[Rfam]
RNA sequence: CUCUUAUCCAGAGUGGUGGAGGGACUGGCCCGAUGAAACCCGGCAACCGCCCUGGCACGUUUACACCCGCAGGCCGCCGGCGGGCAGGUAAACGUGCGGGGAAUGGUGCCAAUUCCUGCAGAAGUUUACCUUCUGACAGAUAAGAG
Numbered sequence: 001c002u003c004u005u006a007u008c009c010a011g012a013g014u015g016g017u018g019g020a021g022g023g024a025c026u027g028g029c030c031c032g033a034u035g036a037a038a039c040c041c042g043g044c045a046a047c048c049g050c051c052c053u054g055g056c057a058c059g060u061u062u063a064c065a066c067c068c069g070c071a072g073g074c075c076g077c078c079g080g081c082g083g084g085c086a087g088g089u090a091a092a093c094g095u096g097c098g099g100g101g102a103a104u105g106g107u108g109c110c111a112a113u114u115c116c117u118g119c120a121g122a123a124g125u126u127u128a129c130c131u132u133c134u135g136a137c138a139g140a141u142a143a144g145a146g
Stems, first nucleotide, its partner, number of pairs: 001146008013041001015040003021031003025118001027116002042110004047106002050101005114138001119135006
SAM riboswitch aptamer (S box leader): a 146-nucleotide RNA sequence from Desulfofundulus thermobenzoicus. It scores 95 bits against the family's covariance model. Rfam links the family to the GO term regulation of gene expression. The SAM riboswitch is found upstream of a number of genes which code for proteins involved in methionine or cysteine biosynthesis in Gram-positive bacteria.